[Rfam]
RNA sequence: GCGUGCCCAUGCAUCCUGGCCUCUGCCCGAACCGACCCUGGCGUACUUCCCCAACGCCAGGUUCACACGUUCGGACAGGGACCAGACUGCAUUGGUCGCGGCCC
Dot-bracket structure: .........((((..(.((.(((((.((((((.((.((((((((.........)))))))).))....)))))).))))).)).)..)))).............
The record is a 104-nucleotide RNA sequence, which matches "mraW RNA" in Rfam.
A search with the family's covariance model found it, with a score of 66 bits.
Rfam classes the family as a cis-regulatory element.